Description:
The family of this 66-nucleotide RNA from Metabacillus arenae is "Bacillaceae-1 RNA". Lineage of the source: Bacteria > Bacillati > Bacilli > Bacillaceae > Metabacillus. The match comes from Rfam's covariance-model search (56 bits). The base pairs follow the family's consensus structure, which is taken from published work. It is annotated as a small RNA.

[Rfam]
RNA sequence: GAAAAAGGAACACAGACAGAACGCCACUUACUGUGGCAACGUCUGUGUGACCCACAUUCUUGUGGG
Numbered sequence: 001g002a003a004a005a006a007g008g009a010a011c012a013c014a015g016a017c018a019g020a021a022c023g024c025c026a027c028u029u030a031c032u033g034u035g036g037c038a039a040c041g042u043c044u045g046u047g048u049g050a051c052c053c054a055c056a057u058u059c060u061u062g063u064g065g066g
Stems, first nucleotide, its partner, number of pairs: 011047007023037005051066005